[Rfam]
RNA: Small nucleolar RNA U105B
Organism: Diceros bicornis
Nucleotides: 080
Stems, first nucleotide, its partner, number of pairs: 005075005010021001012019002029050004
Number, partner (000 for none) and nucleotide at each position: 001000c002000u003000c004000c005075g006074u007073g008072c009071g010021g011000c012019u013018g014000a015000u016000g017000a018013c019012a020000a021010c022000g023000c024000u025000g026000c027000u028000g029050c030049u031048g032047a033000g034000a035000c036000u037000c038000u039000g040000u041000g042000a043000u044000u045000g046000g047032u048031c049030a050029g051000u052000c053000u054000c055000a056000a057000a058000g059000u060000a061000a062000a063000u064000g065000c066000u067000c068000u069000g070000a071009c072008g073007c074006a075005c076000g077000g078000u079000g080000g